The family of this 96-nucleotide RNA sequence from Dipodomys ordii is "Small nucleolar RNA SNORD116". Rfam classes the family as a C/D-box small nucleolar RNA. On this family, see Cavaille et al., Proc Natl Acad Sci U S A 2000: "Identification of brain-specific and imprinted small nucleolar RNA genes exhibiting an unusual genomic organization". NCBI's taxonomy places the organism under Eukaryota, Chordata, Boreoeutheria, Castorimorpha, Dipodomys.

[Rfam]
RNA sequence: AGAUCAAUGAUAAUUCCCUAAAAACCAUUCCAUGGAAAAACUGAACAAAAUGAGUGAAAACUCAUUCCCAUCUCCGCUCAUCGGUGACUGGGGUCC
Numbered sequence: 001a002g003a004u005c006a007a008u009g010a011u012a013a014u015u016c017c018c019u020a021a022a023a024a025c026c027a028u029u030c031c032a033u034g035g036a037a038a039a040a041c042u043g044a045a046c047a048a049a050a051u052g053a054g055u056g057a058a059a060a061c062u063c064a065u066u067c068c069c070a071u072c073u074c075c076g077c078u079c080a081u082c083g084g085u086g087a088c089u090g091g092g093g094u095c096c
Stems, first nucleotide, its partner, number of pairs: 002095004026056005033047002